A member of the RNA family "Small nucleolar RNA snoR53Y" from Powellomyces hirtus, 76 nucleotides long. Rfam 15.1 lists 513 matches to the family in 230 species. It scores 50 bits against the family's covariance model. The base pairs follow the family's consensus structure, which was predicted with WAR. Its family is annotated with nucleolus and RNA processing in the Gene Ontology.
RNA sequence: CGUUGCAAUGAUGUGAAACAACCAUGCUAAUUCUGAAUUAGAAUGAAAGAACAAAAUGAAUAACACUGAGCAACGU
Numbered sequence: 001c002g003u004u005g006c007a008a009u010g011a012u013g014u015g016a017a018a019c020a021a022c023c024a025u026g027c028u029a030a031u032u033c034u035g036a037a038u039u040a041g042a043a044u045g046a047a048a049g050a051a052c053a054a055a056a057u058g059a060a061u062a063a064c065a066c067u068g069a070g071c072a073a074c075g076u
Base pairs, nucleotide, nucleotide: 001075002074003073004072005071

For this family Rfam cites "Multiple snoRNA gene clusters from Arabidopsis" (Brown et al., RNA, 2001).
Taxonomically the source falls in Powellomyces (Eukaryota, Opisthokonta, Chytridiomycota, Chytridiomycetes).